[Rfam]
Rfam assigns this 111-nucleotide sequence from Metabacillus harenarius to the family "SAM riboswitch aptamer (S box leader)".
Rfam links the family to the GO term regulation of gene expression.
RNA sequence: CUCUUAUCAAGAGUGGCAGAGGGACUGGCCCUAUGACGCCCGGCAACCGUUCUAUUUUCUAGAAUUGGUGCUAAAUCCUGCAAAACCAUUAUCGGUUUUGGAAGAUAAGAG
Numbered sequence: 001c002u003c004u005u006a007u008c009a010a011g012a013g014u015g016g017c018a019g020a021g022g023g024a025c026u027g028g029c030c031c032u033a034u035g036a037c038g039c040c041c042g043g044c045a046a047c048c049g050u051u052c053u054a055u056u057u058u059c060u061a062g063a064a065u066u067g068g069u070g071c072u073a074a075a076u077c078c079u080g081c082a083a084a085a086c087c088a089u090u091a092u093c094g095g096u097u098u099u100g101g102a103a104g105a106u107a108a109g110a111g
Base pairs, nucleotide, nucleotide: 001111002110003109004108005107006106007105008104013041015040016039017038021031022030023029025080027078028077042072043071044070045069047068048067050064051063052062053061076103081100082099083098084097085096086095
A search with the family's covariance model found it, with a score of 97 bits.